Record summary:
This 173-nucleotide RNA from Spirochaeta africana belongs to the Rfam family "M-box riboswitch aptamer (ykoK leader)". Taxonomically the source falls in Spirochaeta africana (Bacteria, Pseudomonadati, Spirochaetota, Spirochaetia). Rfam links the family to the GO terms response to magnesium ion and regulation of gene expression.
RNA sequence: AUACGCCUUUGAAAGGUGAGGCUCCUGUACAAACCCAGGCCGCUGCCCCGAAAUGUCGAAAGACGCCAAGGGGUAGAACAGGCACAUUCGGAUUAAGGAUGUGCAUAACGCGGCUCGCGCGCUAACCCCGCGCUACGUUGUACAGUGCCAAAUCCGAAUCGAGGAAGGCCACG
Numbered sequence: 001a002u003a004c005g006c007c008u009u010u011g012a013a014a015g016g017u018g019a020g021g022c023u024c025c026u027g028u029a030c031a032a033a034c035c036c037a038g039g040c041c042g043c044u045g046c047c048c049c050g051a052a053a054u055g056u057c058g059a060a061a062g063a064c065g066c067c068a069a070g071g072g073g074u075a076g077a078a079c080a081g082g083c084a085c086a087u088u089c090g091g092a093u094u095a096a097g098g099a100u101g102u103g104c105a106u107a108a109c110g111c112g113g114c115u116c117g118c119g120c121g122c123u124a125a126c127c128c129c130g131c132g133c134u135a136c137g138u139u140g141u142a143c144a145g146u147g148c149c150a151a152a153u154c155c156g157a158a159u160c161g162a163g164g165a166a167g168g169c170c171a172c173g
Stems, first nucleotide, its partner, number of pairs: 005169006011160002015155002020149003025145008039114005045074005054065004082104003087099003116132003
Dot-bracket structure: ....((((((((..((...(((..((((((((......(((((.(((((....((((....))))....))))).......(((..(((.......)))..))).....))))).(((...........))).....)))))))).)))....))...))...))))))....